Shown here is a 107-nucleotide RNA from Methylosinus trichosporium, a member of the family "EcpR1".
On this family, see Wilms et al., RNA Biol 2012: "Deep sequencing uncovers numerous small RNAs on all four replicons of the plant pathogen Agrobacterium tumefaciens".
Rfam's curators write: Perviously named SmelC291, SmrC10, or Sra33. According to its overproduction phenotype it was renamed Elongated Cell Phenotype RNA1. Induced by stress,EcpR1 negatively regulates cell cycle master regulatory genes dnaA and gcrA at post-transcriptional level by base pairing between its strongly conserved GC-rich loop and the target mRNAs. It's regulation is hfq-independent but requires RNase E to regulate dnaA.

RNA sequence: AUACCCUGCGGAGUGCUCAGGUCCGCCGCAUCUCCUGGGUCCGUGGGGUUGGCCGGCUGGCGUUGGUUGGAGUGGCCUCCUUAAAGCCAGCGUCAGUCGGCCGCCUU
Numbered sequence: 001a002u003a004c005c006c007u008g009c010g011g012a013g014u015g016c017u018c019a020g021g022u023c024c025g026c027c028g029c030a031u032c033u034c035c036u037g038g039g040u041c042c043g044u045g046g047g048g049u050u051g052g053c054c055g056g057c058u059g060g061c062g063u064u065g066g067u068u069g070g071a072g073u074g075g076c077c078u079c080c081u082u083a084a085a086g087c088c089a090g091c092g093u094c095a096g097u098c099g100g101c102c103g104c105c106u107u
Stems, first nucleotide, its partner, number of pairs: 003049008016039006051102017